Guanidine-II riboswitch aptamer (mini-ykkC): a 47-nucleotide RNA from Desulfoplanes formicivorans. The source organism's lineage runs through Bacteria, Pseudomonadati, Desulfovibrionia, Desulfoplanaceae and Desulfoplanes. The family has 72 seed sequences and 1,589 matches in Rfam 15.1. It scores 48 bits against the family's covariance model.
Nucleotides: 047
Base pairs, nucleotide, nucleotide: 001020002019004017005016006015007014008013035046036045037044038043
Number, partner (000 for none) and nucleotide at each position: 001020c002019g003000u004017u005016g006015a007014g008013g009000a010000c011000g012000a013008c014007c015006u016005c017004a018000u019002c020001g021000c022000u023000c024000a025000c026000c027000a028000u029000g030000c031000g032000a033000a034000c035046g036045g037044g038043g039000a040000c041000g042000a043038c044037c045036c046035c047000a